Rfam assigns this 156-nucleotide sequence from Pontibacillus yanchengensis to the family "Ribosomal protein L10 leader". The family's RNA type in Rfam is cis-regulatory leader. The organism belongs to Pontibacillus yanchengensis, within Bacteria. The family's consensus secondary structure was predicted with CMfinder. Its family is annotated with regulation of gene expression in the Gene Ontology.
RNA sequence: AUAAAUAAAUACGUUAUACCGUAGACAGUAGGUGCGAGACAGUCGCUUAAAUUACCUACCGAGGUGUGUAGAUAAUAUUUUGAGAUAGUUGUUCGCUCAUAACUAUCUCGGACUUAUGUGCCUCCAUGUCUACAUGGGGGCAUUUUUAAUGGCAAA
Dot-bracket structure: ...........................(((((((((.......))).......))))))............................................................(((((((((....)))))))))...............